Annotation
The family of this 70-nucleotide RNA from Tombusvirus lycopersici is "Tombus virus defective interfering (DI) RNA region 3". For this family Rfam cites "An internally located RNA hairpin enhances replication of Tomato bushy stunt virus RNAs" (Ray and White, J Virol, 2003). This family represents region 3 of the defective interfering (DI) RNA element of the Tombus viruses and is found in the 3' UTR. This family has been found to enhance DI RNA accumulation by approximately 10-fold as well as mediating viral replication.
RNA sequence: GGUGAGUAAGACAGACUCUUCAGUCUGAGUUUGUGAAGAUGAGUGUAAAUCUGGCAUAGCAUACAGGUUA
Dot-bracket structure: ..........((((((((........)))))))).............((((((..........)))))).